[Rfam]
The family of this 110-nucleotide RNA sequence from Peptococcaceae bacterium CEB3 is "azaaromatic riboswitch aptamer (yjdF RNA)". The match comes from Rfam's covariance-model search (83 bits).

RNA sequence: UAAUGUGAACAUAAAAACACGGUCCGGUUGGUAGUCCGGAUGCACUGAUGCUCCGAGUCAUCGGUGUCGUAUCCUUCCCUCUCGGGAUGUCCCUUGUUCGCAAUCUGUUG
Numbered sequence: 001u002a003a004u005g006u007g008a009a010c011a012u013a014a015a016a017a018c019a020c021g022g023u024c025c026g027g028u029u030g031g032u033a034g035u036c037c038g039g040a041u042g043c044a045c046u047g048a049u050g051c052u053c054c055g056a057g058u059c060a061u062c063g064g065u066g067u068c069g070u071a072u073c074c075u076u077c078c079c080u081c082u083c084g085g086g087a088u089g090u091c092c093c094u095u096g097u098u099c100g101c102a103a104u105c106u107g108u109u110g
Stems, first nucleotide, its partner, number of pairs: 004102008022041006042067009076087004